[Rfam]
RNA: Purine riboswitch aptamer
Organism: Bacillaceae bacterium SAS-127
RNA sequence: CAUUAAAAAAUAUCAUUCGCUCAUAUAAUCGCGGGGAUAGGGCCUGCAAGUUUCUACCGGAUGACCGUAAAUCGUCUGACUAUGAGUGAGCAGUGGCUGUAU
Numbered sequence: 001c002a003u004u005a006a007a008a009a010a011u012a013u014c015a016u017u018c019g020c021u022c023a024u025a026u027a028a029u030c031g032c033g034g035g036g037a038u039a040g041g042g043c044c045u046g047c048a049a050g051u052u053u054c055u056a057c058c059g060g061a062u063g064a065c066c067g068u069a070a071a072u073c074g075u076c077u078g079a080c081u082a083u084g085a086g087u088g089a090g091c092a093g094u095g096g097c098u099g100u101a102u
Base pairs, nucleotide, nucleotide: 018088019087020086021085022084023083024082025081029049031047032046033045034044035043058078059077060076061075062074063073064072